The record is an 87-nucleotide sequence from Cronobacter sakazakii, which matches "sroD RNA" in Rfam. Rfam describes the family as follows. This family consists of a number of bacterial sroD RNA genes of around 90 bases in length. sroD is found in several Enterobacterial species but its function is unknown. It is annotated as a small RNA. The literature on the family includes a 2003 paper in Nucleic Acids Res by Vogel et al., "RNomics in Escherichia coli detects new sRNA species and indicates parallel transcriptional output in bacteria". It scores 60 bits against the family's covariance model. The family's consensus secondary structure was predicted with PFOLD.
RNA sequence: CUACGUGACGAAGCGCGCCGGGCGGGCGACAAUACCGCCUGAGCUGCAAUCACGUCGCCCUGACGCCGGUUCUACCGGCGUUUUUUA
Numbered sequence: 001c002u003a004c005g006u007g008a009c010g011a012a013g014c015g016c017g018c019c020g021g022g023c024g025g026g027c028g029a030c031a032a033u034a035c036c037g038c039c040u041g042a043g044c045u046g047c048a049a050u051c052a053c054g055u056c057g058c059c060c061u062g063a064c065g066c067c068g069g070u071u072c073u074a075c076c077g078g079c080g081u082u083u084u085u086u087a
Stems, first nucleotide, its partner, number of pairs: 015059001016057002021039003062082008